[Rfam]
RNA: malK-I RNA
RNA sequence: UUAUUGGCGUGCGGAGCUCUCCAUACCUUAGCUCCGUUCAGCACAGAAAAGGAGGAAAUUAUUCCCUGAGGCUCAGGGUGCGGCAGUGUGGAGACCUGUCGUAAUGCGGGUGGCGAUGCCCCUGCGAGACCGCUGCAGCGGAGGCUCAGCGGCCGGAGUCAAGAAAAGUAUGGCA
Numbered sequence: 001u002u003a004u005u006g007g008c009g010u011g012c013g014g015a016g017c018u019c020u021c022c023a024u025a026c027c028u029u030a031g032c033u034c035c036g037u038u039c040a041g042c043a044c045a046g047a048a049a050a051g052g053a054g055g056a057a058a059u060u061a062u063u064c065c066c067u068g069a070g071g072c073u074c075a076g077g078g079u080g081c082g083g084c085a086g087u088g089u090g091g092a093g094a095c096c097u098g099u100c101g102u103a104a105u106g107c108g109g110g111u112g113g114c115g116a117u118g119c120c121c122c123u124g125c126g127a128g129a130c131c132g133c134u135g136c137a138g139c140g141g142a143g144g145c146u147c148a149g150c151g152g153c154c155g156g157a158g159u160c161a162a163g164a165a166a167a168g169u170a171u172g173g174c175a
Base pairs, nucleotide, nucleotide: 009039011037012036013035014034015033016032017031018030064078065077066076067075070160071159072158073157074156079103080102081101082100083099084098085097086096088095089094106125107124108123109122110121112120113119114118128154130152131151132150133149134148135147137146138145139144